RNA sequence: UCGUCAGUGCGGUAUAUCCUGACCUGCCCCGCCCGUGCGGGCAGCACGUGAUGAGUGCGUGAGUGAUGACGUGAGUGAUUACGUCACGCUGGCGUUCGGGCUCCGUGCAACAAGGCCCGGGCGACCUCAGACUCUGAC
Numbered sequence: 001u002c003g004u005c006a007g008u009g010c011g012g013u014a015u016a017u018c019c020u021g022a023c024c025u026g027c028c029c030c031g032c033c034c035g036u037g038c039g040g041g042c043a044g045c046a047c048g049u050g051a052u053g054a055g056u057g058c059g060u061g062a063g064u065g066a067u068g069a070c071g072u073g074a075g076u077g078a079u080u081a082c083g084u085c086a087c088g089c090u091g092g093c094g095u096u097c098g099g100g101c102u103c104c105g106u107g108c109a110a111c112a113a114g115g116c117c118c119g120g121g122c123g124a125c126c127u128c129a130g131a132c133u134c135u136g137a138c
Stems, first nucleotide, its partner, number of pairs: 024044003028041005068087001071084003076081001091126002093123010
Dot-bracket structure: .......................(((.(((((....)))))))).......................(..(((..(....))))..)...((((((((((((...........)))))))))).))............
Overview: Rfam assigns this 138-nucleotide RNA sequence from Falcunculus frontatus to the family "U8 small nucleolar RNA". NCBI's taxonomy places the organism under Eukaryota, Bilateria, Sarcopterygii, Archelosauria, Falcunculus. For this family Rfam cites "The U8 snoRNA gene family: identification and characterization of distinct, functional U8 genes in Xenopus" (Peculis et al., Gene, 2001). A search with the family's covariance model found it, with a score of 50 bits. Gene Ontology terms of the family: nucleolus and RNA processing. The family has 55 seed sequences and 1,597 matches in Rfam 15.1.